Description:
Shown here is a 119-nucleotide sequence from Ustilago trichophora, a member of the family "Small nucleolar RNA Z13/snr52". The organism belongs to Ustilago, within Eukaryota. The family's consensus secondary structure was predicted with PFOLD. By type it is a C/D-box small nucleolar RNA. It scores 68 bits against the family's covariance model.
RNA sequence: AGGUUUAUUGUGAUGAACUAUUUACGGAUGUAAAACUGCCCUCGAAAGGGGGCUUGUCAUUUUGUCUGAGAGCGCAAAACCGUGUGGAUCUCUCCGUUGCCUUCCUACUGAUCUUAUCC
Numbered sequence: 001a002g003g004u005u006u007a008u009u010g011u012g013a014u015g016a017a018c019u020a021u022u023u024a025c026g027g028a029u030g031u032a033a034a035a036c037u038g039c040c041c042u043c044g045a046a047a048g049g050g051g052g053c054u055u056g057u058c059a060u061u062u063u064g065u066c067u068g069a070g071a072g073c074g075c076a077a078a079a080c081c082g083u084g085u086g087g088a089u090c091u092c093u094c095c096g097u098u099g100c101c102u103u104c105c106u107a108c109u110g111a112u113c114u115u116a117u118c119c
Base pairs, nucleotide, nucleotide: 003118005116025096026095027094028093